[Rfam]
RNA sequence: CGGUGUGAGCAGGUCAGGUGUGGUGCAGUGUGAUAGUGGAAUAUGCAUCAUGCGUGACCUCCCUACACAGC
Numbered sequence: 001c002g003g004u005g006u007g008a009g010c011a012g013g014u015c016a017g018g019u020g021u022g023g024u025g026c027a028g029u030g031u032g033a034u035a036g037u038g039g040a041a042u043a044u045g046c047a048u049c050a051u052g053c054g055u056g057a058c059c060u061c062c063c064u065a066c067a068c069a070g071c
Stems, first nucleotide, its partner, number of pairs: 003068005009062001011060006018053004023048002